[Rfam]
RNA: glmS glucosamine-6-phosphate activated ribozyme aptamer
RNA sequence: UUAGCAAGACAAGCGCCAGAACUGGCACGCGCGUUACAGACAUUAUUCGCUGAUGUGAAUCGGUCUCAAGCCAUCGACAGAGGGCUUCGCAUUACCACUCACAGACAACGCAUCAGUCGCUUAAUGCAUGGACACGCUCGUCCAGUUGACGAGGUGAAGGUGUUCGAAACAUUCGGCGGGGACCUUCCGGUCAUCAUCUAGACCGUAAGUCGAGCGUCAAAACGUCCGGGCGACCGGACGGACAAAGGCUCGGCAGGAUGGAAU
Numbered sequence: 001u002u003a004g005c006a007a008g009a010c011a012a013g014c015g016c017c018a019g020a021a022c023u024g025g026c027a028c029g030c031g032c033g034u035u036a037c038a039g040a041c042a043u044u045a046u047u048c049g050c051u052g053a054u055g056u057g058a059a060u061c062g063g064u065c066u067c068a069a070g071c072c073a074u075c076g077a078c079a080g081a082g083g084g085c086u087u088c089g090c091a092u093u094a095c096c097a098c099u100c101a102c103a104g105a106c107a108a109c110g111c112a113u114c115a116g117u118c119g120c121u122u123a124a125u126g127c128a129u130g131g132a133c134a135c136g137c138u139c140g141u142c143c144a145g146u147u148g149a150c151g152a153g154g155u156g157a158a159g160g161u162g163u164u165c166g167a168a169a170c171a172u173u174c175g176g177c178g179g180g181g182a183c184c185u186u187c188c189g190g191u192c193a194u195c196a197u198c199u200a201g202a203c204c205g206u207a208a209g210u211c212g213a214g215c216g217u218c219a220a221a222a223c224g225u226c227c228g229g230g231c232g233a234c235c236g237g238a239c240g241g242a243c244a245a246a247g248g249c250u251c252g253g254c255a256g257g258a259u260g261g262a263a264u
Base pairs, nucleotide, nucleotide: 020147021146022145023144024143025142156187157186158185159184160183164176165175166174167173188205189204190203191202192201209254210253211252212251213250214249215248223240224239225238226237227236228235229234